Overview: The record is a 343-nucleotide RNA sequence from Anaerorhabdus furcosa, which matches "Bacterial RNase P class B" in Rfam. Clan: RNaseP clan. The organism belongs to Anaerorhabdus, within Bacteria. It scores 294 bits against the family's covariance model. Rfam's curators write: Ribonuclease P (RNase P) is a ubiquitous endoribonuclease, found in archaea, bacteria and eukarya as well as chloroplasts and mitochondria. Its best characterised activity is the generation of mature 5'-ends of tRNAs by cleaving the 5'-leader elements of precursor-tRNAs. By type it is a ribozyme.

RNA sequence: UCACUCGGGCAAUCGCUGAUGUUUCGGCAUUAGAGGAAAGUCCAUGCUCGCACAAUCUGCGAUGAUUGUAGUGUUUAUGCUAGCCCAAUCAAUAAGGCUAGGUAGGGAAAAAACCUAACGGCUGACCAAUUACCUAAGGGAAACUAUGGUAAAAGGCUUUAAAAGUGUCACAGUGACGGAGUCUAUAGGGAAACUUAUAGAGUGGAACGAGAUAAACCCCAUAAGCGAGAAACCCAAAUUUGGUAGGGGAAUCUUUCAUGACUAACUUGAAGAAAUGAAAGGAUACUGAAAAGUAUAGAUAAAUGGUUGCCACCCGCAAGGGGACAGAACAUGGCUUACAGAG
Numbered sequence: 001u002c003a004c005u006c007g008g009g010c011a012a013u014c015g016c017u018g019a020u021g022u023u024u025c026g027g028c029a030u031u032a033g034a035g036g037a038a039a040g041u042c043c044a045u046g047c048u049c050g051c052a053c054a055a056u057c058u059g060c061g062a063u064g065a066u067u068g069u070a071g072u073g074u075u076u077a078u079g080c081u082a083g084c085c086c087a088a089u090c091a092a093u094a095a096g097g098c099u100a101g102g103u104a105g106g107g108a109a110a111a112a113a114c115c116u117a118a119c120g121g122c123u124g125a126c127c128a129a130u131u132a133c134c135u136a137a138g139g140g141a142a143a144c145u146a147u148g149g150u151a152a153a154a155g156g157c158u159u160u161a162a163a164a165g166u167g168u169c170a171c172a173g174u175g176a177c178g179g180a181g182u183c184u185a186u187a188g189g190g191a192a193a194c195u196u197a198u199a200g201a202g203u204g205g206a207a208c209g210a211g212a213u214a215a216a217c218c219c220c221a222u223a224a225g226c227g228a229g230a231a232a233c234c235c236a237a238a239u240u241u242g243g244u245a246g247g248g249g250a251a252u253c254u255u256u257c258a259u260g261a262c263u264a265a266c267u268u269g270a271a272g273a274a275a276u277g278a279a280a281g282g283a284u285a286c287u288g289a290a291a292a293g294u295a296u297a298g299a300u301a302a303a304u305g306g307u308u309g310c311c312a313c314c315c316g317c318a319a320g321g322g323g324a325c326a327g328a329a330c331a332u333g334g335c336u337u338a339c340a341g342a343g
Base pairs, nucleotide, nucleotide: 004343005342006341007339008311009310010309011308012307013306014305016033017032018031019030020029021028038337039336040335042334043333044332045331046330047229048228049227050226051225052069053068054067055066056065057064075224076223077222078221079220080101081100082099083098084097085096102119103117104116105115106114120219121218124158126156131151132150133149134148138145139144165217166216167213168212169211182201183200184199185198186197187196188195189194233248234247235246252282253281254280255279256278257277258276283296284295285294286293287292313322314321315320